[Rfam]
RNA sequence: GGCCCGGCUCUUGCUAUCAGCAAAGGACAGGUAGCCAACGGCGGUUGCCCCCUUCACGACAAAGACGUCGC
Numbered sequence: 001g002g003c004c005c006g007g008c009u010c011u012u013g014c015u016a017u018c019a020g021c022a023a024a025g026g027a028c029a030g031g032u033a034g035c036c037a038a039c040g041g042c043g044g045u046u047g048c049c050c051c052c053u054u055c056a057c058g059a060c061a062a063a064g065a066c067g068u069c070g071c
Stems, first nucleotide, its partner, number of pairs: 030049007
The record is a 71-nucleotide RNA from Pseudomonas donghuensis, which matches "narK RNA" in Rfam. Pairs were carried over by alignment from the consensus structure, which is taken from published work. It is annotated as a cis-regulatory element. Taxonomically the source falls in Pseudomonas (Bacteria, Pseudomonadati, Pseudomonadota, Pseudomonadales).